[Rfam]
RNA sequence: GCGGGAGAGGUUCUAGCUACACCCUCUAUAAAAAACUAAGGACGA
Number, nucleotide and partner (000 for none) at each position: 001g000002c000003g000004g000005g000006a027007g026008a025009g024010g023011u000012u000013c000014u000015a000016g037017c000018u000019a000020c000021a000022c000023c010024c009025u008026c007027u006028a000029u000030a000031a000032a000033a000034a000035a000036c000037u016038a000039a000040g000041g000042a000043c000044g000045a000
Annotation
Shown here is a 45-nucleotide RNA sequence from Bacillus subtilis, a member of the family "PreQ1 (pre queuosine) riboswitch aptamer". The sequence is in the family's curated seed alignment. From the family's description: This family is a bacterial riboswitch that binds to the metabolite preQ1, an intermediate in the biosynthesis of the modified nucleoside queuosine from GTP. One example of this riboswitch is located in the leader of the Bacillus subtilis ykvJKLM (queCDEF) operon which encodes four genes necessary for queuosine production. PreQ1 binding to the riboswitch aptamer is thought to induce premature transcription termination within the leader to down-regulate expression of these genes. On this family, see Kang et al., Mol Cell 2009: "Structural Insights into riboswitch control of the biosynthesis of queuosine, a modified nucleotide found in the anticodon of tRNA".